This 99-nucleotide RNA from Clostridium cavendishii belongs to the Rfam family "Guanidine-I riboswitch aptamer". This family represents a conserved RNA structure found upstream of the ykkC and yxkD genes in Bacillus subtilis and related genes in other bacteria. The function of this family is unclear although it has been suggested that it may function to switch on efflux pumps and detoxification systems in response to harmful environmental molecules. Rfam links the family to the GO term regulation of gene expression. The organism belongs to Clostridium cavendishii, within Bacteria.
[Rfam]
RNA sequence: GUUAAAGUUUUAUAGGGUUCCGCAGAAUAAUAUCUGGUCUGGUCCAAGAUAAAACGCACAGUGUAUCUGUGUUCACGGAAGGACAAAAGCCUGGGAGAU
Numbered sequence: 001g002u003u004a005a006a007g008u009u010u011u012a013u014a015g016g017g018u019u020c021c022g023c024a025g026a027a028u029a030a031u032a033u034c035u036g037g038u039c040u041g042g043u044c045c046a047a048g049a050u051a052a053a054a055c056g057c058a059c060a061g062u063g064u065a066u067c068u069g070u071g072u073u074c075a076c077g078g079a080a081g082g083a084c085a086a087a088a089g090c091c092u093g094g095g096a097g098a099u
Stems, first nucleotide, its partner, number of pairs: 007055006015045002020042002022039001023036004056072006074094001076097001080092003